[Rfam]
RNA sequence: UUGCAAUAGCAACACCGUAAAUUACCAGCAGCAAUUCACUUAGUGAGUGCUGAUACUUUCAGUCUAAGCGA
Dot-bracket structure: .(((....(.(...........).)..........................................))).
Numbered sequence: 001u002u003g004c005a006a007u008a009g010c011a012a013c014a015c016c017g018u019a020a021a022u023u024a025c026c027a028g029c030a031g032c033a034a035u036u037c038a039c040u041u042a043g044u045g046a047g048u049g050c051u052g053a054u055a056c057u058u059u060c061a062g063u064c065u066a067a068g069c070g071a
Stems, first nucleotide, its partner, number of pairs: 002070003009025001011023001

Rfam assigns this 71-nucleotide RNA sequence from Propithecus coquereli to the family "Small nucleolar RNA SNORD56". It is annotated as a C/D-box small nucleolar RNA. Its family is annotated with RNA processing and nucleolus in the Gene Ontology. The literature on the family includes a 2002 paper in Mol Cell Biol by Galardi et al., "Purified box C/D snoRNPs are able to reproduce site-specific 2'-O-methylation of target RNA in vitro".